[Rfam]
Rfam assigns this 188-nucleotide sequence from Krasilnikovia cinnamomea to the family "FMN riboswitch aptamer (RFN element)".

RNA sequence: ACGCGCUGGCGGGACUCGGUGAAAUUCCGAACCGGCGGUGAUCUUCAGGCCUUCCGUCUGAGGUAAGCCCGCGACCCGGUCGUCGACCACACGACGCCCGGUGGACCUGGUGAGAAUCCGGGGCCGACGGUUGAUCGACCGGCACAUGAUGCCGGCCGGUCAGACAGUCCGGAUGGGAGACAGCGCGC
Numbered sequence: 001a002c003g004c005g006c007u008g009g010c011g012g013g014a015c016u017c018g019g020u021g022a023a024a025u026u027c028c029g030a031a032c033c034g035g036c037g038g039u040g041a042u043c044u045u046c047a048g049g050c051c052u053u054c055c056g057u058c059u060g061a062g063g064u065a066a067g068c069c070c071g072c073g074a075c076c077c078g079g080u081c082g083u084c085g086a087c088c089a090c091a092c093g094a095c096g097c098c099c100g101g102u103g104g105a106c107c108u109g110g111u112g113a114g115a116a117u118c119c120g121g122g123g124c125c126g127a128c129g130g131u132u133g134a135u136c137g138a139c140c141g142g143c144a145c146a147u148g149a150u151g152c153c154g155g156c157c158g159g160u161c162a163g164a165c166a167g168u169c170c171g172g173a174u175g176g177g178a179g180a181c182a183g184c185g186c187g188c
Stems, first nucleotide, its partner, number of pairs: 003186006010179001017029003033126002035072004067124002076101004106122005128171003